[Rfam]
RNA sequence: GGUCACGAGUGACAGCAGUUGAGGGCCCCGGCCCGCUGUCCGGCAACCCUCCUCCGCGGUGGGGUGCCCCGGGUGAUGACCGGGCCGCGGGCGUAGGGUCCGUGGCAAGCGCGGAUC
Numbered sequence: 001g002g003u004c005a006c007g008a009g010u011g012a013c014a015g016c017a018g019u020u021g022a023g024g025g026c027c028c029c030g031g032c033c034c035g036c037u038g039u040c041c042g043g044c045a046a047c048c049c050u051c052c053u054c055c056g057c058g059g060u061g062g063g064g065u066g067c068c069c070c071g072g073g074u075g076a077u078g079a080c081c082g083g084g085c086c087g088c089g090g091g092c093g094u095a096g097g098g099u100c101c102g103u104g105g106c107a108a109g110c111g112c113g114g115a116u117c
Base pairs, nucleotide, nucleotide: 001081002080003079004078009041011040012039013038014037015036016035024033025032042068043067044066047064048063049062051059052058084106085105086104087103088102089101090100091099092098
The family of this 117-nucleotide sequence from Streptomyces sp. PT12 is "SAM (S-adenosyl methionine) riboswitch aptamer". The family is grouped with related families in Rfam's "SAM clan". It scores 100 bits against the family's covariance model.